[Rfam]
RNA sequence: GUCUGGAGUAAGCCCAGGAAUACGGUGCAGCAGAGUUCUUUAGGCCACAUGCUUAACCAAGAAGAGAUUUCCUCAUCUUGCACAUUGUGCAUGAGUCUCACAAACCAUGGUUGGGAAGAUCUGGACUAGGAGUCAGGGGAUUUUGACUUUGCCAGCCACUGCUAA
Numbered sequence: 001g002u003c004u005g006g007a008g009u010a011a012g013c014c015c016a017g018g019a020a021u022a023c024g025g026u027g028c029a030g031c032a033g034a035g036u037u038c039u040u041u042a043g044g045c046c047a048c049a050u051g052c053u054u055a056a057c058c059a060a061g062a063a064g065a066g067a068u069u070u071c072c073u074c075a076u077c078u079u080g081c082a083c084a085u086u087g088u089g090c091a092u093g094a095g096u097c098u099c100a101c102a103a104a105c106c107a108u109g110g111u112u113g114g115g116a117a118g119a120u121c122u123g124g125a126c127u128a129g130g131a132g133u134c135a136g137g138g139g140a141u142u143u144u145g146a147c148u149u150u151g152c153c154a155g156c157c158a159c160u161g162c163u164a165a
Stems, first nucleotide, its partner, number of pairs: 011163003017157002025150001027148001031145005046087002052130004060073002076117001078115002092100003105138002108135005
RNA: Hovlinc ribozyme (hominin vlincRNA-located)
Organism: Dasypus novemcinctus